[Rfam]
RNA sequence: AAAGUAGGCCGUCUUAUCGCUUUUAAUUUAUUAAAAGAGGAAAGUCCGGACACCACAGAGCAGUAUAAUGGUUAACGGCCAUCAAUUGUGAAAUUAGGACAAGUGCAACAGAAAGAAUGUACAGGUUAUGCUGUAGUGAAAUCAGGUAAACUCUAUACGGUGCAAUGUCAUGUAAACCGACUUUAAGACUUGCUCGGUCAUUGUUGGAGGGUAGACAGCUAGAGGUUUUUGGUAACAAAAACUCCAGAUAAAUGAUAAGAUUUUCUUUUUAGAAAAACAGAAUCCGGCUUAUAGGCCUACUUUAUUU
Numbered sequence: 001a002a003a004g005u006a007g008g009c010c011g012u013c014u015u016a017u018c019g020c021u022u023u024u025a026a027u028u029u030a031u032u033a034a035a036a037g038a039g040g041a042a043a044g045u046c047c048g049g050a051c052a053c054c055a056c057a058g059a060g061c062a063g064u065a066u067a068a069u070g071g072u073u074a075a076c077g078g079c080c081a082u083c084a085a086u087u088g089u090g091a092a093a094u095u096a097g098g099a100c101a102a103g104u105g106c107a108a109c110a111g112a113a114a115g116a117a118u119g120u121a122c123a124g125g126u127u128a129u130g131c132u133g134u135a136g137u138g139a140a141a142u143c144a145g146g147u148a149a150a151c152u153c154u155a156u157a158c159g160g161u162g163c164a165a166u167g168u169c170a171u172g173u174a175a176a177c178c179g180a181c182u183u184u185a186a187g188a189c190u191u192g193c194u195c196g197g198u199c200a201u202u203g204u205u206g207g208a209g210g211g212u213a214g215a216c217a218g219c220u221a222g223a224g225g226u227u228u229u230u231g232g233u234a235a236c237a238a239a240a241a242c243u244c245c246a247g248a249u250a251a252a253u254g255a256u257a258a259g260a261u262u263u264u265c266u267u268u269u270u271a272g273a274a275a276a277a278c279a280g281a282a283u284c285c286g287g288c289u290u291a292u293a294g295g296c297c298u299a300c301u302u303u304a305u306u307u
Base pairs, nucleotide, nucleotide: 001303002302003301004300005299006298007297008296009295010294011292012260013259014258015257016256017255018254020037021036022035023034024033025032026031042290043289044288046287047286048285049284050283051162052161053160054159058195059194060193061192063158064157065156066155067154068082069081070080071079072078083097084095085094086093087092098153099152103151104150105147106146120135121134122133123132124131166217167216168215169214177207178206179205180204181203187199188198189197190196224243225242226241227240228239229238230237231236
Overview:
Rfam assigns this 307-nucleotide sequence from Mesonia sp. HuA40 to the family "Bacterial RNase P class A". Its family is annotated with dimeric ribonuclease P complex, tRNA processing and ribonuclease P activity in the Gene Ontology. The family's RNA type in Rfam is ribozyme. The base pairs follow the family's consensus structure, which is taken from published work. Ribonuclease P (RNase P) is a ubiquitous endoribonuclease, found in archaea, bacteria and eukarya as well as chloroplasts and mitochondria. It scores 224 bits against the family's covariance model.